[Rfam]
RNA sequence: AAGUAAAUCCUUUGAAUAAAAGGUUCACUUUUUUAUGGAAAUAAAACAAUACUAAACUAAAUGAAGGAGCAAUACCGACCCUCUUAUUCUAUCAAGAGGGUCAGUAUUGCUCCUUC
Dot-bracket structure: ........((((.......)))).......................................(((((((((((((.(((.(((((........))))).))).)))))))))))))
Numbered sequence: 001a002a003g004u005a006a007a008u009c010c011u012u013u014g015a016a017u018a019a020a021a022g023g024u025u026c027a028c029u030u031u032u033u034u035a036u037g038g039a040a041a042u043a044a045a046a047c048a049a050u051a052c053u054a055a056a057c058u059a060a061a062u063g064a065a066g067g068a069g070c071a072a073u074a075c076c077g078a079c080c081c082u083c084u085u086a087u088u089c090u091a092u093c094a095a096g097a098g099g100g101u102c103a104g105u106a107u108u109g110c111u112c113c114u115u116c
Stems, first nucleotide, its partner, number of pairs: 009023004063116013077102003081098005
Shown here is a 116-nucleotide RNA from Papaver somniferum, a member of the family "Plastid-psbA-1 3UTR RNA".
A reference for the family is Richter et al. (2023), "Retrograde signaling in plants: A critical review focusing on the GUN pathway and beyond", Plant Commun.
Rfam classes the family as a cis-regulatory element.
Rfam describes the family as follows. Plastid psbA-1 is a non-coding RNA (ncRNA) present in plastids. It was identified in inverted repeat sequences in the 3 prime untranslate region (3UTR) of photosystem II quinone-binding protein (psbA).